Overview
A member of the RNA family "Small nucleolar RNA Z162" from Hordeum vulgare, 90 nucleotides long. Rfam links the family to the GO terms nucleolus and RNA processing. A reference for the family is Chen et al. (2003), "The high diversity of snoRNAs in plants: identification and comparative study of 120 snoRNA genes from Oryza sativa", Nucleic Acids Res. The match comes from Rfam's covariance-model search (52 bits). Pairs were carried over by alignment from the consensus structure, which was predicted with PFOLD.

[Rfam]
RNA sequence: AGUGAUUCUAUGAGGAACUUAUACUUUGCUAAUGCAUCUAUGAUGUUGAAAGGCCAAUGACCUGAUAUGUCCUUUUCAUUAUGAGUGCGU
Dot-bracket structure: ...(.(.(.(((((..............................(((....)))....................))))).....).))..